[Rfam]
A member of the RNA family "mir-7 microRNA precursor family" from Pseudolycoriella hygida, 88 nucleotides long. It scores 58 bits against the family's covariance model. This family represents the microRNA (miRNA) precursor mir-7. The organism belongs to Pseudolycoriella, within Eukaryota. Pairs were carried over by alignment from the consensus structure, which was predicted with PFOLD.
RNA sequence: UGACAUAUUUUGUAUGGAAGACUAGUGAUUUUGUUGUUUUGAUUUUAAUAUUAACAAAAAAUCUCUUGUCUUUCUACAAUGUGUGUUG
Numbered sequence: 001u002g003a004c005a006u007a008u009u010u011u012g013u014a015u016g017g018a019a020g021a022c023u024a025g026u027g028a029u030u031u032u033g034u035u036g037u038u039u040u041g042a043u044u045u046u047a048a049u050a051u052u053a054a055c056a057a058a059a060a061a062u063c064u065c066u067u068g069u070c071u072u073u074c075u076a077c078a079a080u081g082u083g084u085g086u087u088g
Stems, first nucleotide, its partner, number of pairs: 002087007010079005016073002019071004025065001027063005034057005